[Rfam]
RNA: c-di-GMP-II-GCG riboswitch aptamer
RNA sequence: UGUCCUGCGGGUGGUGAGGACGCGCGGACCAUACCCGGCCGCCCGGCCCGCGUCGAACCACUGGCGAGCCCGACCCGCAGUGGA
Numbered sequence: 001u002g003u004c005c006u007g008c009g010g011g012u013g014g015u016g017a018g019g020a021c022g023c024g025c026g027g028a029c030c031a032u033a034c035c036c037g038g039c040c041g042c043c044c045g046g047c048c049c050g051c052g053u054c055g056a057a058c059c060a061c062u063g064g065c066g067a068g069c070c071c072g073a074c075c076c077g078c079a080g081u082g083g084a
Stems, first nucleotide, its partner, number of pairs: 001084001003082001005080007013059003022053006029046001037071002040066004